Record summary
The record is a 261-nucleotide RNA from Bacillus sp. B1-b2, which matches "Bacillus sRNA ncr1575" in Rfam. The match comes from Rfam's covariance-model search (124 bits). The family's consensus secondary structure is taken from published work.
RNA sequence: UAUGAAACGAUGAAAGGGAUGAUGGGUGAACGAUGAAGAACUAAUCUUAUUUUAACCAUUUGAAAUGAAAAUUUUUCAAAUCAUAUAAAAUAGGAUUAGUCUGCCCAUUUUCAAUAUACGAGUGCCAAUGCAUAUUUAAUAAUUAUGACUUUAACAAGUCGCUAUUUCUUGAUGGAUAAAAGUACAUCAAGAAAUAGGAUUAUUUAAUGAUAAGUAGGUGCGGACUAAUCCUUCCAAUAUAAAAAUUGGGGGGAUUUUUUU
Numbered sequence: 001u002a003u004g005a006a007a008c009g010a011u012g013a014a015a016g017g018g019a020u021g022a023u024g025g026g027u028g029a030a031c032g033a034u035g036a037a038g039a040a041c042u043a044a045u046c047u048u049a050u051u052u053u054a055a056c057c058a059u060u061u062g063a064a065a066u067g068a069a070a071a072u073u074u075u076u077c078a079a080a081u082c083a084u085a086u087a088a089a090a091u092a093g094g095a096u097u098a099g100u101c102u103g104c105c106c107a108u109u110u111u112c113a114a115u116a117u118a119c120g121a122g123u124g125c126c127a128a129u130g131c132a133u134a135u136u137u138a139a140u141a142a143u144u145a146u147g148a149c150u151u152u153a154a155c156a157a158g159u160c161g162c163u164a165u166u167u168c169u170u171g172a173u174g175g176a177u178a179a180a181a182g183u184a185c186a187u188c189a190a191g192a193a194a195u196a197g198g199a200u201u202a203u204u205u206a207a208u209g210a211u212a213a214g215u216a217g218g219u220g221c222g223g224a225c226u227a228a229u230c231c232u233u234c235c236a237a238u239a240u241a242a243a244a245a246u247u248g249g250g251g252g253g254a255u256u257u258u259u260u261u
Stems, first nucleotide, its partner, number of pairs: 017112003023107004030100002042098013058081008123206002131198001133196004227256011

The family's RNA type in Rfam is small RNA.